[Rfam]
The family of this 86-nucleotide RNA from Aegilops tauschii is "Small nucleolar RNA Z102/R77".
It scores 67 bits against the family's covariance model.
Clan: SNORD44 clan.

RNA sequence: AGGUGAUGUGAUGAAUGAGAUUAAUUUCCCUAUUGGUUUGAUUGGCUGAUAUGAUGGCCUCAAUACUGAACCGAAUCUGAUCAUCC
Numbered sequence: 001a002g003g004u005g006a007u008g009u010g011a012u013g014a015a016u017g018a019g020a021u022u023a024a025u026u027u028c029c030c031u032a033u034u035g036g037u038u039u040g041a042u043u044g045g046c047u048g049a050u051a052u053g054a055u056g057g058c059c060u061c062a063a064u065a066c067u068g069a070a071c072c073g074a075a076u077c078u079g080a081u082c083a084u085c086c
Base pairs, nucleotide, nucleotide: 002085003084004083005082040061044059045058046057047056